[Rfam]
RNA sequence: CCUGUGCUGGGUAGCUUCAACUUGUGACCCAAGCGGGGGCUACAUGGUGAUGGAACACAGCUUUGGCUUGGCAGGUUCGGUUGGUGGCUUGCCCGCUCCAAGUUGAGAGUUGAGUCAUGGGACUUUGGCGAAGGUUGGGUCUCUUGGCUUUUAGACUGGAGGGUAUAGCGUGAGGCUGGACUCACAGAGCAGCGAAAACCUUCAGCUCCUAACAGUGGAGAGAUCACAAGUUGCCGCACUACUUGCCGACGAAGCUUGUCGACCCAAGCUCGUUGGACCAUCAUUUUU
Numbered sequence: 001c002c003u004g005u006g007c008u009g010g011g012u013a014g015c016u017u018c019a020a021c022u023u024g025u026g027a028c029c030c031a032a033g034c035g036g037g038g039g040c041u042a043c044a045u046g047g048u049g050a051u052g053g054a055a056c057a058c059a060g061c062u063u064u065g066g067c068u069u070g071g072c073a074g075g076u077u078c079g080g081u082u083g084g085u086g087g088c089u090u091g092c093c094c095g096c097u098c099c100a101a102g103u104u105g106a107g108a109g110u111u112g113a114g115u116c117a118u119g120g121g122a123c124u125u126u127g128g129c130g131a132a133g134g135u136u137g138g139g140u141c142u143c144u145u146g147g148c149u150u151u152u153a154g155a156c157u158g159g160a161g162g163g164u165a166u167a168g169c170g171u172g173a174g175g176c177u178g179g180a181c182u183c184a185c186a187g188a189g190c191a192g193c194g195a196a197a198a199c200c201u202u203c204a205g206c207u208c209c210u211a212a213c214a215g216u217g218g219a220g221a222g223a224u225c226a227c228a229a230g231u232u233g234c235c236g237c238a239c240u241a242c243u244u245g246c247c248g249a250c251g252a253a254g255c256u257u258g259u260c261g262a263c264c265c266a267a268g269c270u271c272g273u274u275g276g277a278c279c280a281u282c283a284u285u286u287u288u
Stems, first nucleotide, its partner, number of pairs: 001039002004023001006021001008019004028037003044287001046285008056275002058272001060270001061268003065264002068262010078236002084234008093222001096220005102213004107208004112150006119143007127136003157204006169194003176187003
The record is a 288-nucleotide RNA from Cicer arietinum, which matches "Plant signal recognition particle RNA" in Rfam. NCBI's taxonomy places the organism under Eukaryota, Magnoliopsida, Gunneridae, Fabales, Cicer. It is annotated as a non-coding RNA gene.